Record summary: The record is a 160-nucleotide RNA sequence from Arthrobacter subterraneus, which matches "c-di-AMP riboswitch aptamer (ydaO/yuaA leader)" in Rfam.
RNA sequence: AAGGUCCGUUCGCUACACACAGCGACAGGAGCGGGGGAACCAGAUAGCGGACUUCUUCAGAAGUCCUAGGGGUUAAGACGUGCCCGGCCUCACCGCCGGACGUCCGGGUGGCUCCCAUCCGAAUCCGACAGCUAACUCCGCAGGCAUUGGGAGAGGCAAU
Numbered sequence: 001a002a003g004g005u006c007c008g009u010u011c012g013c014u015a016c017a018c019a020c021a022g023c024g025a026c027a028g029g030a031g032c033g034g035g036g037g038a039a040c041c042a043g044a045u046a047g048c049g050g051a052c053u054u055c056u057u058c059a060g061a062a063g064u065c066c067u068a069g070g071g072g073u074u075a076a077g078a079c080g081u082g083c084c085c086g087g088c089c090u091c092a093c094c095g096c097c098g099g100a101c102g103u104c105c106g107g108g109u110g111g112c113u114c115c116c117a118u119c120c121g122a123a124u125c126c127g128a129c130a131g132c133u134a135a136c137u138c139c140g141c142a143g144g145c146a147u148u149g150g151g152a153g154a155g156g157c158a159a160u
Stems, first nucleotide, its partner, number of pairs: 005029002031141006041069001070126003078103004106120004
Gene Ontology terms of the family: regulation of gene expression and cyclic-di-AMP binding. The organism belongs to Arthrobacter, within Bacteria.